[Rfam]
RNA sequence: UACCCCGGUCUGACCUGCGCUCCCUGUGAACCACCCACUGAGGAGAAAGCACCCCCACCAAGCCCCACCCCUCCCUCCCGCCGGGCAAACUCACUCGCGCGAGUGAAUAUGCCCAACUCGGCUGGAUUCGGGACCGGUUGCCUGCCUUACGCUCACCGCAGCAGGCCACAACCCCCCAGACAUGCGACGGCCCCCGCAGGGACGGCAAUCCCAGUGCGAGGGCCUGACCACCGAGGAAGUAGGGCUUCCCG
Numbered sequence: 001u002a003c004c005c006c007g008g009u010c011u012g013a014c015c016u017g018c019g020c021u022c023c024c025u026g027u028g029a030a031c032c033a034c035c036c037a038c039u040g041a042g043g044a045g046a047a048a049g050c051a052c053c054c055c056c057a058c059c060a061a062g063c064c065c066c067a068c069c070c071c072u073c074c075c076u077c078c079c080g081c082c083g084g085g086c087a088a089a090c091u092c093a094c095u096c097g098c099g100c101g102a103g104u105g106a107a108u109a110u111g112c113c114c115a116a117c118u119c120g121g122c123u124g125g126a127u128u129c130g131g132g133a134c135c136g137g138u139u140g141c142c143u144g145c146c147u148u149a150c151g152c153u154c155a156c157c158g159c160a161g162c163a164g165g166c167c168a169c170a171a172c173c174c175c176c177c178a179g180a181c182a183u184g185c186g187a188c189g190g191c192c193c194c195c196g197c198a199g200g201g202a203c204g205g206c207a208a209u210c211c212c213a214g215u216g217c218g219a220g221g222g223c224c225u226g227a228c229c230a231c232c233g234a235g236g237a238a239g240u241a242g243g244g245c246u247u248c249c250c251g
Stems, first nucleotide, its partner, number of pairs: 007232003017077001019075001091106006121157001123155003189224005195218003199212004235249005

This 251-nucleotide RNA sequence from Streptomyces sp. B93 belongs to the Rfam family "Streptomyces sRNA 4677".
Rfam classes the family as a small RNA.
The pairing is the family consensus, mapped onto this sequence.
For this family Rfam cites "Complex intra-operonic dynamics mediated by a small RNA in Streptomyces coelicolor" (Hindra et al., PLoS One, 2014).
Located in the intergenic region between anti-sigma factor SCO4677 gene and a putative regulatory protein gene SCO4676. scr4677 expression requires the SCO4677 activity and scr4677 sRNA itself seem to affect the levels of the SCO4676-associated transcripts.